[Rfam]
RNA sequence: GAAUCAAACUACUCUUCUACUUUCAUUCCUUCGAACAAUCCCGUUCAUACCAAUCCCUCUGCAACCAUGACUCCCUGCAACUGCAACUCUUGCUGCUCCGGCGACUGCAACUCCUGCAACUGCUCCCAGUGCAAGGUAUGCACCCACCUAUCUAUC
Numbered sequence: 001g002a003a004u005c006a007a008a009c010u011a012c013u014c015u016u017c018u019a020c021u022u023u024c025a026u027u028c029c030u031u032c033g034a035a036c037a038a039u040c041c042c043g044u045u046c047a048u049a050c051c052a053a054u055c056c057c058u059c060u061g062c063a064a065c066c067a068u069g070a071c072u073c074c075c076u077g078c079a080a081c082u083g084c085a086a087c088u089c090u091u092g093c094u095g096c097u098c099c100g101g102c103g104a105c106u107g108c109a110a111c112u113c114c115u116g117c118a119a120c121u122g123c124u125c126c127c128a129g130u131g132c133a134a135g136g137u138a139u140g141c142a143c144c145c146a147c148c149u150a151u152c153u154a155u156c
Stems, first nucleotide, its partner, number of pairs: 076103003083096003107132003116123002
RNA: A. fumigatus sRNA Afu_254
Organism: Aspergillus pseudonomiae